[Rfam]
The family of this 139-nucleotide RNA from Lysinibacillus halotolerans is "c-di-AMP riboswitch aptamer (ydaO/yuaA leader)". The source organism's lineage runs through Bacteria, Bacillati, Bacillota, Bacilli and Lysinibacillus.

RNA sequence: UCAUAUUAUCGGCCUAAUCUCAUAUAGAGAACGGAGGACCCAUUAUUUUGGGGUUAAUUCUGCCAUUGCAGAAGGGAUGAGAUCACUCUUUCGCCAUCCUACCCGUCAGCUAACUUCGUCGGCUAAAGCGAAGGAGGUC
Numbered sequence: 001u002c003a004u005a006u007u008a009u010c011g012g013c014c015u016a017a018u019c020u021c022a023u024a025u026a027g028a029g030a031a032c033g034g035a036g037g038a039c040c041c042a043u044u045a046u047u048u049u050g051g052g053g054u055u056a057a058u059u060c061u062g063c064c065a066u067u068g069c070a071g072a073a074g075g076g077a078u079g080a081g082a083u084c085a086c087u088c089u090u091u092c093g094c095c096a097u098c099c100u101a102c103c104c105g106u107c108a109g110c111u112a113a114c115u116u117c118g119u120c121g122g123c124u125a126a127a128g129c130g131a132a133g134g135a136g137g138u139c
Stems, first nucleotide, its partner, number of pairs: 011124004018030003031119006041050002051104003059072004075099004